[Rfam]
Xanthomonadaceae sRNA Xoo2: a 77-nucleotide RNA from Xanthomonas albilineans. The source organism's lineage runs through Bacteria, Gammaproteobacteria, Lysobacterales, Xanthomonas and Xanthomonas albilineans. It is annotated as a small RNA.
RNA sequence: AGGCGAAGUGAUUCGCCACAAGCCGUGACGCACGGCCGCUGAGCGGCGGAUUUCCUCGUCGGGUCCGCCGCUUUUUU
Numbered sequence: 001a002g003g004c005g006a007a008g009u010g011a012u013u014c015g016c017c018a019c020a021a022g023c024c025g026u027g028a029c030g031c032a033c034g035g036c037c038g039c040u041g042a043g044c045g046g047c048g049g050a051u052u053u054c055c056u057c058g059u060c061g062g063g064u065c066c067g068c069c070g071c072u073u074u075u076u077u
Stems, first nucleotide, its partner, number of pairs: 002017004022036005043071010